[Rfam]
RNA sequence: GGAGAAGGGUUUCUUGUCAACUGUGAUUGUACAAGAGUUAGCCGCUCCUAAGAGACAGCUGAAAAGUGUUUAAGUUAAGGGACAAAAUGUAUAUAUAACAUUUUAACCCUAUUCUCAAAAGGGAAACAGGUUUAUAUUCCUGUGCCAAUACAAAUAUGUGGGUUAUAUAUAUACAUAACGGUAUAUAAGUAGAGAUGGCAACAUAUAGAUAAAUGAACUCCUUAACAUAGGUCUUACACUCGGGGUGCGUUUUCUUUGCACUUUACCUUUAUGGCAUACCUUGGAAUCAAUUUACUUGGAGAAGAGGUUUGCUGAAGCAAUUCAGAUAAAUUAUUUUUAGAAGUUUCGGCUUUUAUUUAUAAUUGUUUGUUUUGUAGCAAUAGUAAUUCGUUUUUAUGAAUUAUUCGAUUCGGUAUAAACUAUCCUUGAAAAAAGGGGGGAACAGCAAGCCAAAGGAGUGUAUACAAAUAUGGAAUUAGCUUUUUUUUUAUCUUAUCUCGAAAGAAAAAAAAUAGGUAAUUUGGUAAUUGUGUAUAGUCUUAAGGUUUGUUAAACUCUAAUUUGUUAAUAUGAGCGUACCAACAACCGCAUCAGGUCUCC
Numbered sequence: 001g002g003a004g005a006a007g008g009g010u011u012u013c014u015u016g017u018c019a020a021c022u023g024u025g026a027u028u029g030u031a032c033a034a035g036a037g038u039u040a041g042c043c044g045c046u047c048c049u050a051a052g053a054g055a056c057a058g059c060u061g062a063a064a065a066g067u068g069u070u071u072a073a074g075u076u077a078a079g080g081g082a083c084a085a086a087a088u089g090u091a092u093a094u095a096u097a098a099c100a101u102u103u104u105a106a107c108c109c110u111a112u113u114c115u116c117a118a119a120a121g122g123g124a125a126a127c128a129g130g131u132u133u134a135u136a137u138u139c140c141u142g143u144g145c146c147a148a149u150a151c152a153a154a155u156a157u158g159u160g161g162g163u164u165a166u167a168u169a170u171a172u173a174c175a176u177a178a179c180g181g182u183a184u185a186u187a188a189g190u191a192g193a194g195a196u197g198g199c200a201a202c203a204u205a206u207a208g209a210u211a212a213a214u215g216a217a218c219u220c221c222u223u224a225a226c227a228u229a230g231g232u233c234u235u236a237c238a239c240u241c242g243g244g245g246u247g248c249g250u251u252u253u254c255u256u257u258g259c260a261c262u263u264u265a266c267c268u269u270u271a272u273g274g275c276a277u278a279c280c281u282u283g284g285a286a287u288c289a290a291u292u293u294a295c296u297u298g299g300a301g302a303a304g305a306g307g308u309u310u311g312c313u314g315a316a317g318c319a320a321u322u323c324a325g326a327u328a329a330a331u332u333a334u335u336u337u338u339a340g341a342a343g344u345u346u347c348g349g350c351u352u353u354u355a356u357u358u359a360u361a362a363u364u365g366u367u368u369g370u371u372u373u374g375u376a377g378c379a380a381u382a383g384u385a386a387u388u389c390g391u392u393u394u395u396a397u398g399a400a401u402u403a404u405u406c407g408a409u410u411c412g413g414u415a416u417a418a419a420c421u422a423u424c425c426u427u428g429a430a431a432a433a434a435g436g437g438g439g440g441a442a443c444a445g446c447a448a449g450c451c452a453a454a455g456g457a458g459u460g461u462a463u464a465c466a467a468a469u470a471u472g473g474a475a476u477u478a479g480c481u482u483u484u485u486u487u488u489u490a491u492c493u494u495a496u497c498u499c500g501a502a503a504g505a506a507a508a509a510a511a512a513u514a515g516g517u518a519a520u521u522u523g524g525u526a527a528u529u530g531u532g533u534a535u536a537g538u539c540u541u542a543a544g545g546u547u548u549g550u551u552a553a554a555c556u557c558u559a560a561u562u563u564g565u566u567a568a569u570a571u572g573a574g575c576g577u578a579c580c581a582a583c584a585a586c587c588g589c590a591u592c593a594g595g596u597c598u599c600c
Stems, first nucleotide, its partner, number of pairs: 001600004007580002012036006021029001043576003047122002052116002054070003058067003079109003126143005146572002218438006227423004232418001235415003240408003243263006267317004278308005287299004319402006586595002
RNA: Eukaryotic large subunit ribosomal RNA, nucleotides 1780 to 2379